This 146-nucleotide RNA sequence from Leucobacter denitrificans belongs to the Rfam family "FMN riboswitch aptamer (RFN element)".
From the family's description: The RFN element is a highly conserved domain that is found frequently in the 5'-untranslated regions of prokaryotic mRNAs that encode for flavin mononucleotide (FMN) biosynthesis and transport proteins.
Taxonomically the source falls in Leucobacter (Bacteria, Bacillati, Actinomycetota, Actinomycetes).
It scores 85 bits against the family's covariance model.
The base pairs follow the family's consensus structure, which is taken from published work.

RNA sequence: UACGUGUUCCGGGGUCGGUGAAAAUCCGAACCGGCGGUGAGAGUCCGCGACCCCCGCACCCGCGGGGUUGAACCGGUGAAAUUCCGGUACCGACGGUGAUGUGCAAGCGAAAGUGAGCGCACAAGUCCGGAUGUGAGGAACGCGGG
Dot-bracket structure: ..((((((((.....(((.......)))...((((((.....[[))))...((............))....(((((.......)))))]])).(((..............................))).......))))))))..